A member of the RNA family "BsrG" from Bacillus sp. MRMR6, 244 nucleotides long. Gene Ontology terms of the family: toxin activity and autolysis. About the family: bsrE, bsrG and bsrH pair through intermolecular interactions with antisense sRNAs. On this family, see Jahn and Brantl, Nucleic Acids Res 2013: "One antitoxin--two functions: SR4 controls toxin mRNA decay and translation". Rfam classes the family as a small RNA. The organism belongs to Bacillus, within Bacteria.
[Rfam]
RNA sequence: GCAAUAGAAUAGGUAUCUCAAGGGUGGUCGGCUCACUCCCAACAGAAAGGGGGUGAUGCUGUAUGACGGUAUUUGAUUUAUGAUUGCGAUUGCUUUUGCUAGUUUAAUCGUAGCCGUACUGUCAUUUAACCAAAAAAAAUAAUCCACCCUUGAGUUCACGGCUCUGGUGGAUUAUCUUCACUAUAUAGCUGACCCCCAUUGAGGGACCGUCUAUUGCUGGACCGAACAUGUGACUGCAUGUUCG
Dot-bracket structure: (((((.((.(((.((.((((((((.(((....(((.((((.........)))))))........(((((((..........................(((...........)))..)))))))..................)))..))))))))...............................)).))).(((.......)))....)).))))).....(((((((((....)))))))))